Purine riboswitch aptamer: a 102-nucleotide sequence from Bacillus coahuilensis. The source organism's lineage runs through Bacteria, Bacillati, Bacillota, Caryophanales and Bacillus coahuilensis. The base pairs follow the family's consensus structure, which is taken from published work. A search with the family's covariance model found it, with a score of 84 bits.
RNA sequence: UUAACUUCAUAAUCUACACCUUGUAUAUGCACGAGAAUAUGGCUCGAGCGUCUCUACCAAACUACCUUAAAUAGUUUGUCUACAAGGAUUAUAAAAUAAGGU
Numbered sequence: 001u002u003a004a005c006u007u008c009a010u011a012a013u014c015u016a017c018a019c020c021u022u023g024u025a026u027a028u029g030c031a032c033g034a035g036a037a038u039a040u041g042g043c044u045c046g047a048g049c050g051u052c053u054c055u056a057c058c059a060a061a062c063u064a065c066c067u068u069a070a071a072u073a074g075u076u077u078g079u080c081u082a083c084a085a086g087g088a089u090u091a092u093a094a095a096a097u098a099a100g101g102u
Stems, first nucleotide, its partner, number of pairs: 019087007029049002032046004058078007